[Rfam]
RNA sequence: GAUGCGUCCGGAUGAUGUCUUCAUCGGCCGUGAAUAUAUUGAAUAGGGUCGGUGGGACUUUCGUCCGUUUGCAGA
Dot-bracket structure: ..((((..(((((((.((((.((.(((((.................))))).))))))..)))))))..))))..
Numbered sequence: 001g002a003u004g005c006g007u008c009c010g011g012a013u014g015a016u017g018u019c020u021u022c023a024u025c026g027g028c029c030g031u032g033a034a035u036a037u038a039u040u041g042a043a044u045a046g047g048g049u050c051g052g053u054g055g056g057a058c059u060u061u062c063g064u065c066c067g068u069u070u071g072c073a074g075a
Stems, first nucleotide, its partner, number of pairs: 003073004009067007017058004022054002025051005